[Rfam]
RNA: ASpks TB sRNA
RNA sequence: CUUCAACGAGCCCAGCCACAGCGGCCGCCCCUCCGCACGCCCCUGCCCAUAGGUGGCCAGCAACGCCUGCGCCUC
Numbered sequence: 001c002u003u004c005a006a007c008g009a010g011c012c013c014a015g016c017c018a019c020a021g022c023g024g025c026c027g028c029c030c031c032u033c034c035g036c037a038c039g040c041c042c043c044u045g046c047c048c049a050u051a052g053g054u055g056g057c058c059a060g061c062a063a064c065g066c067c068u069g070c071g072c073c074u075c
Stems, first nucleotide, its partner, number of pairs: 015025003031071001033069001038065002043060003047056003